[Rfam]
RNA sequence: UGGCUACAAAAUAACUUAUUCUAUAGUCACUUUGAGUUACGAUAAUUAUUAUGUUAAUUUAUGAGAUUAUAGUAGCUCCUUACUAAGUGGUUUACUAUAAGUAAAUAUCUCCAUGUGUUAUAGUAAUCCAACUAUCGUAAAUAUGUAUUGACAUUAUCGUAAAUUAGUAUAUAAAAUUAUCGUAAAUGGAGGUGGCUACAGAAUAACUUAUUUUAUAGCUG
Numbered sequence: 001u002g003g004c005u006a007c008a009a010a011a012u013a014a015c016u017u018a019u020u021c022u023a024u025a026g027u028c029a030c031u032u033u034g035a036g037u038u039a040c041g042a043u044a045a046u047u048a049u050u051a052u053g054u055u056a057a058u059u060u061a062u063g064a065g066a067u068u069a070u071a072g073u074a075g076c077u078c079c080u081u082a083c084u085a086a087g088u089g090g091u092u093u094a095c096u097a098u099a100a101g102u103a104a105a106u107a108u109c110u111c112c113a114u115g116u117g118u119u120a121u122a123g124u125a126a127u128c129c130a131a132c133u134a135u136c137g138u139a140a141a142u143a144u145g146u147a148u149u150g151a152c153a154u155u156a157u158c159g160u161a162a163a164u165u166a167g168u169a170u171a172u173a174a175a176a177u178u179a180u181c182g183u184a185a186a187u188g189g190a191g192g193u194g195g196c197u198a199c200a201g202a203a204u205a206a207c208u209u210a211u212u213u214u215a216u217a218g219c220u221g
Stems, first nucleotide, its partner, number of pairs: 001221006008214007016206007024198010037185011050171013065158003069154002074148001080140004087135006093125007100110002
A member of the RNA family "MIR6217 microRNA precursor family" from Miscanthus lutarioriparius, 221 nucleotides long.
It scores 174 bits against the family's covariance model.
Gene Ontology terms of the family: RISC complex and miRNA-mediated post-transcriptional gene silencing.
The family's consensus secondary structure was predicted with RNAalifold.
The source organism's lineage runs through Eukaryota, Spermatophyta, Mesangiospermae, Poales and Miscanthus.